[Rfam]
RNA sequence: UCCCAGUGCGCGUCUAGCAGGAGCCUGCGUCCCCGGGGUGCCGGCAGCGCCGCCGGCCGGUGCUGGGUGCGCCGGGCCAUGCAGCGGCGGCCGCGGCGGAGCUCCGAGCGGCGGUAGCGCCCCCUGUGAGGCGACCAGAGAUGCCCCGGCCACUGUGAACCGCGCCGCCCGCCAGGACACGCUCAGCCCGGGACACGCUCGGCUCUGCGCGCCCGCGACAGGCACCGGGGCGAGGGAGCGACCAGCGCGGCGCAGGCCGCCCAGCGGGGGCGGGGGAGGCCGGCCGGUGCGGCGCGGGGCCACCUACUCGCUCUGACUCCGGCUGGCACUG
Number, nucleotide and partner (000 for none) at each position: 001u276002c275003c274004c273005a000006g271007u270008g000009c268010g000011c000012g000013u000014c000015u000016a000017g000018c000019a000020g000021g041022a000023g039024c036025c035026u000027g033028c000029g000030u000031c000032c000033c027034c000035g025036g024037g000038g000039u023040g000041c021042c000043g262044g261045c000046a000047g258048c000049g257050c256051c255052g000053c000054c000055g109056g000057c000058c106059g105060g104061u000062g000063c099064u098065g000066g000067g094068u093069g092070c000071g091072c090073c089074g088075g000076g085077c084078c000079a000080u000081g000082c000083a000084g077085c076086g000087g000088c074089g073090g072091c071092c069093g068094c067095g000096g000097c000098g064099g063100a000101g000102c000103u000104c060105c059106g058107a000108g000109c055110g000111g156112c155113g154114g153115u152116a000117g151118c000119g150120c149121c148122c000123c000124c000125u000126g144127u143128g142129a000130g000131g000132c138133g000134a000135c000136c000137a000138g132139a000140g000141a000142u128143g127144c126145c000146c000147c000148g121149g120150c119151c117152a115153c114154u113155g112156u111157g000158a000159a000160c252161c000162g000163c249164g248165c247166c000167g246168c245169c000170c000171g242172c000173c000174a000175g239176g000177a000178c000179a000180c236181g000182c234183u233184c232185a000186g231187c230188c229189c201190g200191g199192g198193a000194c000195a000196c000197g000198c192199u191200c190201g189202g000203c000204u228205c227206u000207g225208c000209g000210c000211g223212c222213c000214c000215g000216c000217g000218a000219c000220a000221g000222g212223c211224a000225c207226c000227g205228g204229g188230g187231c186232g184233a183234g182235g000236g180237a000238g000239c175240g000241a000242c171243c000244a000245g168246c167247g165248c164249g163250g000251c000252g160253c000254a000255g051256g050257c049258c047259g000260c000261c044262c043263a000264g000265c000266g000267g000268g009269g000270g007271c006272g000273g004274g003275g002276g001277a000278g000279g327280c326281c325282g324283g323284c322285c321286g320287g319288u000289g317290c000291g314292g313293c000294g000295c310296g309297g308298g307299g000300c000301c000302a000303c000304c000305u000306a000307c298308u297309c296310g295311c000312u000313c292314u291315g000316a000317c289318u000319c287320c286321g285322g284323c283324u282325g281326g280327c279328a000329c000330u000331g000

A member of the RNA family "TrkB IRES" from Canis lupus, 331 nucleotides long. From the family's description: This family represents the TrkB internal ribosome entry site (IRES) which is present in the 5' leader sequence of the mRNA. TrkB is a neurotrophin receptor which is essential for the development and maintenance of the nervous system. The IRES element allows cap-independent translation of TrkB which may be needed for efficient translation in neuronal dendrites. The base pairs follow the family's consensus structure, which was predicted with RNAfold. For this family Rfam cites "Internal initiation of translation of the TrkB mRNA is mediated by multiple regions within the 5' leader" (Dobson et al., Nucleic Acids Res, 2005). The sequence is in the family's curated seed alignment. Taxonomically the source falls in Canis lupus (Eukaryota, Eumetazoa, Euteleostomi, Carnivora). It is annotated as an internal ribosome entry site.